Background:
This 158-nucleotide RNA sequence from Gossypium australe belongs to the Rfam family "U12 minor spliceosomal RNA". The family's RNA type in Rfam is spliceosomal small nuclear RNA. Clan: U2 clan.
[Rfam]
RNA sequence: UUGCCUUAAACUAAUGAGUAAGGAAAACAAAGCGGGCGGUGGGAGCUGGUUGCCGCGCCCAGCUUUUGGUGCGCAAGAAUUUGUGGAGGUGCAAAAGGCUGGCUGAGUGCUGACGCUGCGCUUACUUUGCGCAGAACUCGUUCGAGCGGGCCUACCAA
Numbered sequence: 001u002u003g004c005c006u007u008a009a010a011c012u013a014a015u016g017a018g019u020a021a022g023g024a025a026a027a028c029a030a031a032g033c034g035g036g037c038g039g040u041g042g043g044a045g046c047u048g049g050u051u052g053c054c055g056c057g058c059c060c061a062g063c064u065u066u067u068g069g070u071g072c073g074c075a076a077g078a079a080u081u082u083g084u085g086g087a088g089g090u091g092c093a094a095a096a097g098g099c100u101g102g103c104u105g106a107g108u109g110c111u112g113a114c115g116c117u118g119c120g121c122u123u124a125c126u127u128u129g130c131g132c133a134g135a136a137c138u139c140g141u142u143c144g145a146g147c148g149g150g151c152c153u154a155c156c157a158a
Stems, first nucleotide, its partner, number of pairs: 004023005032053004037048003055074004090157002096153005102147001105142002107139001109137001111135001117133005